[Rfam]
RNA sequence: GCCUUUUAAUCGCUGAAUUUGUUUAUACAAAAGCGGAGGAACCAAUUUUGGCAAGUUUGCAUAACUAUUGCCUAGGGGUGAAUCUUAUACAAGAAGGGAUACUCUCGUUCCCUAACCCGACAGCUAACUUCGUAAGCGUUUUUCGAGGGAAAGG
Dot-bracket structure: ..........((((...(((.........)))((((((....(...............................)(((.....(((....)))..((((.........))))...))).........)))))).))))................
Shown here is a 154-nucleotide RNA from Salipaludibacillus keqinensis, a member of the family "c-di-AMP riboswitch aptamer (ydaO/yuaA leader)". Pairs were carried over by alignment from the consensus structure. It scores 91 bits against the family's covariance model. The organism belongs to Salipaludibacillus, within Bacteria.